[Rfam]
RNA sequence: GUUAACUAAUACUAAACCUAUCGCAAGCUAGGGUCAGAAAGCCACGGGUCCUCUCUUCAGGAAAGCCGGGCUACCGAA
Numbered sequence: 001g002u003u004a005a006c007u008a009a010u011a012c013u014a015a016a017c018c019u020a021u022c023g024c025a026a027g028c029u030a031g032g033g034u035c036a037g038a039a040a041g042c043c044a045c046g047g048g049u050c051c052u053c054u055c056u057u058c059a060g061g062a063a064a065g066c067c068g069g070g071c072u073a074c075c076g077a078a
Stems, first nucleotide, its partner, number of pairs: 012037002017032004022027001040072004045068003049062004